[Rfam]
RNA sequence: UUCCCUCCCCUUUAAGCAAAACAGGGAUUGUUUGUCAAACAAUAGACUAUUUGACAAACAAUCCCUGUUUUGCUUAAAGGGGAGGGCA
Number, nucleotide and partner (000 for none) at each position: 001u000002u000003c086004c085005c084006u083007c082008c081009c000010c079011u078012u077013u076014a075015a074016g073017c072018a000019a070020a069021a068022c067023a066024g065025g064026g063027a062028u061029u060030g059031u058032u057033u056034g055035u054036c053037a000038a000039a000040c000041a000042a000043u000044a000045g000046a000047c000048u000049a000050u000051u000052u000053g036054a035055c034056a033057a032058a031059c030060a029061a028062u027063c026064c025065c024066u023067g022068u021069u020070u019071u000072g017073c016074u015075u014076a013077a012078a011079g010080g000081g008082g007083a006084g005085g004086g003087c000088a000

mir-7 microRNA precursor family: an 88-nucleotide sequence from Xenopus tropicalis. The family's consensus secondary structure was predicted with PFOLD. It scores 54 bits against the family's covariance model. Gene Ontology terms of the family: miRNA-mediated post-transcriptional gene silencing and RISC complex. A reference for the family is Lagos-Quintana et al. (2001), "Identification of novel genes coding for small expressed RNAs", Science.